RNA sequence: UGUCGAAUAGCCUAUCUGUCAGAUGAUGCCCAUAUAUUUUAUAUGGCGUUAUCUGACAGAUAGGCUAUCUGACA
Dot-bracket structure: .......((((((((..(((((.(((((.(..............).))))).)))))..)))))))).......
Numbered sequence: 001u002g003u004c005g006a007a008u009a010g011c012c013u014a015u016c017u018g019u020c021a022g023a024u025g026a027u028g029c030c031c032a033u034a035u036a037u038u039u040u041a042u043a044u045g046g047c048g049u050u051a052u053c054u055g056a057c058a059g060a061u062a063g064g065c066u067a068u069c070u071g072a073c074a
Stems, first nucleotide, its partner, number of pairs: 008067008018057005024051005030045001

Shown here is a 74-nucleotide RNA from Callosobruchus maculatus, a member of the family "mir-21 microRNA precursor family". The base pairs follow the family's consensus structure, which was predicted with RNAalifold. The family has 41 seed sequences and 777 matches in Rfam 15.1.